[Rfam]
RNA: Purine riboswitch aptamer
RNA sequence: UUAUAAUAACAUAUAAAAACUCGUAUAGCGUCGGUAAUAUGGACCGAAAGUUUCUACCUACUAACCAUAAAUUAGUAGACUACGGGGUAUUGUAUGUUUAGU
Numbered sequence: 001u002u003a004u005a006a007u008a009a010c011a012u013a014u015a016a017a018a019a020c021u022c023g024u025a026u027a028g029c030g031u032c033g034g035u036a037a038u039a040u041g042g043a044c045c046g047a048a049a050g051u052u053u054c055u056a057c058c059u060a061c062u063a064a065c066c067a068u069a070a071a072u073u074a075g076u077a078g079a080c081u082a083c084g085g086g087g088u089a090u091u092g093u094a095u096g097u098u099u100a101g102u
Stems, first nucleotide, its partner, number of pairs: 018088001020086006031047005058078007